[Rfam]
The record is a 129-nucleotide RNA from Tistrella mobilis, which matches "Glycine riboswitch aptamer" in Rfam. A reference for the family is Babina et al. (2017), "In Vivo Behavior of the Tandem Glycine Riboswitch in Bacillus subtilis", MBio. Its family is annotated with glycine biosynthetic process in the Gene Ontology.
RNA sequence: ACGAACCCUGUGGGAGAGCGCGCUGCGCGACGCCCGACCGGUCGAUGGUCGGGAGAAUGUCGAGGCAGUGCCGCCGAAGGAGCAACCGGCCCCGGUAAACUCUCAGGCACCAGGGACCGCAGGGGAAUG
Numbered sequence: 001a002c003g004a005a006c007c008c009u010g011u012g013g014g015a016g017a018g019c020g021c022g023c024u025g026c027g028c029g030a031c032g033c034c035c036g037a038c039c040g041g042u043c044g045a046u047g048g049u050c051g052g053g054a055g056a057a058u059g060u061c062g063a064g065g066c067a068g069u070g071c072c073g074c075c076g077a078a079g080g081a082g083c084a085a086c087c088g089g090c091c092c093c094g095g096u097a098a099a100c101u102c103u104c105a106g107g108c109a110c111c112a113g114g115g116a117c118c119g120c121a122g123g124g125g126a127a128u129g
Stems, first nucleotide, its partner, number of pairs: 006124008020071007073108003076104002080102003086095002
Dot-bracket structure: .....((((((((......(((((((......................................))))))).(((((..(((...((......))....))))).)))........)))))))).....